[Rfam]
A member of the RNA family "Bacteroidete tryptophan peptide leader RNA" from Flavobacterium branchiophilum, 129 nucleotides long.
The organism belongs to Flavobacterium, within Bacteria.

RNA sequence: UUGCAUCAAACAAAAUUCAGAAAAUGUACAAUUUAAACAAUAUUUGGUGGUGGAGCAACUUACGUCAAUCGUCGUGAAGCAAUAUCCUAUAAGUAUAUUUUAAAUACUAAAUAUCUAUAAAGGCUUGUC
Numbered sequence: 001u002u003g004c005a006u007c008a009a010a011c012a013a014a015a016u017u018c019a020g021a022a023a024a025u026g027u028a029c030a031a032u033u034u035a036a037a038c039a040a041u042a043u044u045u046g047g048u049g050g051u052g053g054a055g056c057a058a059c060u061u062a063c064g065u066c067a068a069u070c071g072u073c074g075u076g077a078a079g080c081a082a083u084a085u086c087c088u089a090u091a092a093g094u095a096u097a098u099u100u101u102a103a104a105u106a107c108u109a110a111a112u113a114u115c116u117a118u119a120a121a122g123g124c125u126u127g128u129c
Base pairs, nucleotide, nucleotide: 036100037099040096041095042094043093044092045091046090049088050087052085060079061078062072063071064070
Record summary:
Rfam classes the family as a cis-regulatory leader.